A member of the RNA family "Small nucleolar RNA SNORA33" from Jaculus jaculus, 131 nucleotides long. From the family's description: ACA33 is a member of the H/ACA class of snoRNA that guide the sites of modification of uridines to pseudouridines. The organism belongs to Jaculus, within Eukaryota. The family's RNA type in Rfam is H/ACA-box small nucleolar RNA.
RNA sequence: UAUAUAGCCAACUAAUCUGCUUAUCUGAAUGUGUUUCUGCAAAAAUUUAGGAACAGCUGGAAAUAGUCAUGCCAUUUUACAAGGCAUCAGGACAAAUGAGGUCAUUAGUGUCCCUCCAAAUUGCUACAAUA
Numbered sequence: 001u002a003u004a005u006a007g008c009c010a011a012c013u014a015a016u017c018u019g020c021u022u023a024u025c026u027g028a029a030u031g032u033g034u035u036u037c038u039g040c041a042a043a044a045a046u047u048u049a050g051g052a053a054c055a056g057c058u059g060g061a062a063a064u065a066g067u068c069a070u071g072c073c074a075u076u077u078u079a080c081a082a083g084g085c086a087u088c089a090g091g092a093c094a095a096a097u098g099a100g101g102u103c104a105u106u107a108g109u110g111u112c113c114c115u116c117c118a119a120a121u122u123g124c125u126a127c128a129a130u131a
Stems, first nucleotide, its partner, number of pairs: 003061001005059003016043001018041003071124002074121001083111001087107001089105001091103003